[Rfam]
RNA sequence: CCCACACCCAUGUGUGUAGCACCCAAAAGGAUUACCAUUAAAUAUGGCACAGAUCUCUAGAAACGUUAUCACAUGGGUAUGAGACAUGAUUUUUCUAGAGAUCUAUGCCAUAUUUAAUGGUGAUCCUUUGGAGUCCUACACACAUGGGUGUGGG
Dot-bracket structure: .((((((((((((.(((((.((.(.(((.(((.((((((((((((((((.(((((((((((((.(((((((.(....).)))....)))).))))))))))))).)))))))))))))))).))).))).).)).))))).)))))))))))).
Numbered sequence: 001c002c003c004a005c006a007c008c009c010a011u012g013u014g015u016g017u018a019g020c021a022c023c024c025a026a027a028a029g030g031a032u033u034a035c036c037a038u039u040a041a042a043u044a045u046g047g048c049a050c051a052g053a054u055c056u057c058u059a060g061a062a063a064c065g066u067u068a069u070c071a072c073a074u075g076g077g078u079a080u081g082a083g084a085c086a087u088g089a090u091u092u093u094u095c096u097a098g099a100g101a102u103c104u105a106u107g108c109c110a111u112a113u114u115u116a117a118u119g120g121u122g123a124u125c126c127u128u129u130g131g132a133g134u135c136c137u138a139c140a141c142a143c144a145u146g147g148g149u150g151u152g153g154g
Stems, first nucleotide, its partner, number of pairs: 002153012015140005021134002024131001026129003030125003034121016051104013065090004069082003073078001
MIR8565 microRNA precursor family: a 154-nucleotide sequence from Amborella trichopoda. The source organism's lineage runs through Eukaryota, Streptophyta, Streptophytina, Euphyllophyta and Amborella.